[Rfam]
RNA sequence: CCUCUGGAAAGACGCGCUCCGAACGGGGCGCGGCACCGACGGAGUAAGGCGCCACGGUUCCUCCACGGGACCGCCGCCGAAUCUCUCAGGUCACGGGACAGAGG
Dot-bracket structure: ((((((......((((((........))))))..(((((..(((...((((.......................))))....))))).))).......))))))

The family of this 104-nucleotide RNA from Falsiroseomonas bella is "Glycine riboswitch aptamer". This family represents the bacterial glycine riboswitch. Glycine riboswitches usually consist of two metabolite-binding aptamers domains with similar structures in tandem. Taxonomically the source falls in Falsiroseomonas (Bacteria, Pseudomonadota, Acetobacterales, Roseomonadaceae).